[Rfam]
RNA sequence: CCAUAUUGAAAUCGGGUUUCGACAGCAGCGGUCUGUAAUUUUUCAAACCAUAAGUUCGUUGUCGACGAAACCUGCAUAUAAUGUGG
Numbered sequence: 001c002c003a004u005a006u007u008g009a010a011a012u013c014g015g016g017u018u019u020c021g022a023c024a025g026c027a028g029c030g031g032u033c034u035g036u037a038a039u040u041u042u043u044c045a046a047a048c049c050a051u052a053a054g055u056u057c058g059u060u061g062u063c064g065a066c067g068a069a070a071c072c073u074g075c076a077u078a079u080a081a082u083g084u085g086g
Stems, first nucleotide, its partner, number of pairs: 001086006013074009030057002033054002

Shown here is an 86-nucleotide RNA from Lucilia cuprina, a member of the family "mir-981 microRNA precursor family". Pairs were carried over by alignment from the consensus structure, which was predicted with RNAalifold. It scores 72 bits against the family's covariance model. A reference for the family is Stark et al. (2007), "Systematic discovery and characterization of fly microRNAs using 12 Drosophila genomes", Genome Res.